[Rfam]
RNA sequence: GGGGGUAGAAAGGUAACUGGUGUGCCUCCUGGUCUUCAAAACCAGUGUUGGGCGCCUGCUGCGUCCUGGGUGGGUUCGAUUCCCACAUGCCUCC
Numbered sequence: 001g002g003g004g005g006u007a008g009a010a011a012g013g014u015a016a017c018u019g020g021u022g023u024g025c026c027u028c029c030u031g032g033u034c035u036u037c038a039a040a041a042c043c044a045g046u047g048u049u050g051g052g053c054g055c056c057u058g059c060u061g062c063g064u065c066c067u068g069g070g071u072g073g074g075u076u077c078g079a080u081u082c083c084c085a086c087a088u089g090c091c092u093c094c
Base pairs, nucleotide, nucleotide: 001094002093003092004091005090006089007088008086011027012026013025014024015023017022029045030044031043032042033041048068050066051065052064071085072084073083074082
RNA: Selenocysteine transfer RNA